A member of the RNA family "THF (Tetrahydrofolate) riboswitch aptamer" from Firmicutes bacterium CAG:475, 94 nucleotides long. Rfam's curators write: Tetrahydrofolate (THF) riboswitch was first reported for Ames et al. as an RNA motif in 5' untranslated (5'-UTR)regions of folate transport and biosynthesis genes in Firmicutes genomes. The family's consensus secondary structure is taken from published work. Taxonomically the source falls in Bacillota (Bacteria, Bacillati). It scores 54 bits against the family's covariance model.
RNA sequence: GAAGUAGUAGAAAUUGCGCGUUAAGUGCCGUGCGAACGUGGGGUGUCGGCGGACGAAGAGCGUUGCUCGCGGUGCAAUAUUCACUCCGGACUUC
Numbered sequence: 001g002a003a004g005u006a007g008u009a010g011a012a013a014u015u016g017c018g019c020g021u022u023a024a025g026u027g028c029c030g031u032g033c034g035a036a037c038g039u040g041g042g043g044u045g046u047c048g049g050c051g052g053a054c055g056a057a058g059a060g061c062g063u064u065g066c067u068c069g070c071g072g073u074g075c076a077a078u079a080u081u082c083a084c085u086c087c088g089g090a091c092u093u094c
Base pairs, nucleotide, nucleotide: 001094002093003092004091005090010082011081012080013078014077015076016075017074018073019071020070021069025054026053028052029051030050031049033048034047035046039088040087041086042085043084058068059067060066061065